[Rfam]
The family of this 72-nucleotide RNA from Zootermopsis nevadensis is "mir-1000 microRNA precursor family". NCBI's taxonomy places the organism under Eukaryota, Eumetazoa, Mandibulata, Insecta, Zootermopsis. Rfam links the family to the GO terms miRNA-mediated post-transcriptional gene silencing, negative regulation of glutamate secretion, neurotransmission and RISC complex.
RNA sequence: GGCUGUGAUAUUGUCCUGUCACAGCAGUACUGAUCACAGAGCCUACUGCUGUUUCAGGACAUUGCCACAGAC
Numbered sequence: 001g002g003c004u005g006u007g008a009u010a011u012u013g014u015c016c017u018g019u020c021a022c023a024g025c026a027g028u029a030c031u032g033a034u035c036a037c038a039g040a041g042c043c044u045a046c047u048g049c050u051g052u053u054u055c056a057g058g059a060c061a062u063u064g065c066c067a068c069a070g071a072c
Stems, first nucleotide, its partner, number of pairs: 003070004012061007022051008